This 117-nucleotide RNA sequence from Panicum miliaceum belongs to the Rfam family "Small nucleolar RNA snoR104". A search with the family's covariance model found it, with a score of 70 bits. The family's RNA type in Rfam is H/ACA-box small nucleolar RNA. The organism belongs to Panicum sect. Panicum, within Eukaryota.
[Rfam]
RNA sequence: AGGUAGCAUUCAAAAGAAAAGAUGCCUACCCGAUACAAUCUUCCUAAAGUAAAUUUGUCAUUUCCUGCUUGUGGUAUUUUAAGCGAGUUCUGCAUCAGUAAAUUUGUUCUGAACUGU
Dot-bracket structure: .((.((((((..........))))).).))..........................(.........((((((((.(((.......))).)))))..))).........)........